The family of this 87-nucleotide RNA sequence from Tetracentron sinense is "mir-160 microRNA precursor family". Taxonomically the source falls in Tetracentron (Eukaryota, Embryophyta, Spermatophyta, Magnoliopsida). On this family, see Rhoades et al., Cell 2002: "Prediction of plant microRNA targets". Gene Ontology terms of the family: RISC complex and miRNA-mediated post-transcriptional gene silencing.
[Rfam]
RNA sequence: AUCUGCCUGGCUCCCUGAAUGCCAUCUAAGAAGCUUGUCAAGAGCGUUGACACUCUUUCUAGUUGGCAUCAGGGGAGCCAUGCAGGU
Numbered sequence: 001a002u003c004u005g006c007c008u009g010g011c012u013c014c015c016u017g018a019a020u021g022c023c024a025u026c027u028a029a030g031a032a033g034c035u036u037g038u039c040a041a042g043a044g045c046g047u048u049g050a051c052a053c054u055c056u057u058u059c060u061a062g063u064u065g066g067c068a069u070c071a072g073g074g075g076a077g078c079c080a081u082g083c084a085g086g087u
Base pairs, nucleotide, nucleotide: 001087002086003085004084005083006082008080009079010078011077012076013075014074016072019069020068021067022066023065024064027061028060